[Rfam]
This 90-nucleotide RNA sequence from Beutenbergia cavernae belongs to the Rfam family "ZMP/ZTP riboswitch aptamer (pfl RNA motif)". Pairs were carried over by alignment from the consensus structure, which is taken from published work.

RNA sequence: CGUCUCGGCCGUGACUGGCGCGGGUGGGACCGACCACCGGGGAGCGGCCGAGGAGUCCUGAUCCCGUCGUCGUCCGCCUGGGCGCCGGGU
Numbered sequence: 001c002g003u004c005u006c007g008g009c010c011g012u013g014a015c016u017g018g019c020g021c022g023g024g025u026g027g028g029a030c031c032g033a034c035c036a037c038c039g040g041g042g043a044g045c046g047g048c049c050g051a052g053g054a055g056u057c058c059u060g061a062u063c064c065c066g067u068c069g070u071c072g073u074c075c076g077c078c079u080g081g082g083c084g085c086c087g088g089g090u
Stems, first nucleotide, its partner, number of pairs: 003053010015041002017078004024037004068084004
Dot-bracket structure: ..((((((((((..(([[[[...((((......))))..))..))))))))))..............((((...]]]]..))))......